The record is a 115-nucleotide sequence from Pullulanibacillus camelliae, which matches "PyrR binding site" in Rfam.
The base pairs follow the family's consensus structure, which is taken from published work.
The source organism's lineage runs through Bacteria, Bacillota, Bacilli, Caryophanales and Pullulanibacillus.
The match comes from Rfam's covariance-model search (72 bits).
Gene Ontology terms of the family: pyrimidine nucleobase transport and pyrimidine nucleobase biosynthetic process.
[Rfam]
RNA sequence: AGAUCCUUUAAAACAGUCCUGUGAGGCUGGAAAGGGUAACGGUAAAAGUAUCUAUAGUUUCUAUGGAUGUCUUUAGGAAACCUCUCCACCGCUGACGGUAGAGAGGUUUUUUUGC
Numbered sequence: 001a002g003a004u005c006c007u008u009u010a011a012a013a014c015a016g017u018c019c020u021g022u023g024a025g026g027c028u029g030g031a032a033a034g035g036g037u038a039a040c041g042g043u044a045a046a047a048g049u050a051u052c053u054a055u056a057g058u059u060u061c062u063a064u065g066g067a068u069g070u071c072u073u074u075a076g077g078a079a080a081c082c083u084c085u086c087c088a089c090c091g092c093u094g095a096c097g098g099u100a101g102a103g104a105g106g107u108u109u110u111u112u113u114g115c
Stems, first nucleotide, its partner, number of pairs: 003037007014029005044074003048070010077110010088099003
It is annotated as a cis-regulatory element. On this family, see Bonner et al., Nucleic Acids Res 2001: "Molecular recognition of pyr mRNA by the Bacillus subtilis attenuation regulatory protein PyrR".